[Rfam]
RNA sequence: ACAUUUGAAUAUGUUUAACCGUAGACAGUAGGUGCUGUAACAGGCUUAAUUUCCUACCGAGGUGUUAUGAUAGAAUACCGGAUACUUGAGAGCGCAGAUUAGUCUGCGUCUCGGUUCCGCUCAAUCAAGCCUUCGUCAUUCUGCGGGGGCUUUUUUUAAUGUCCG
Dot-bracket structure: ...........................(((((.(((......))).......))))).......................................................................((((((((......))))))))...............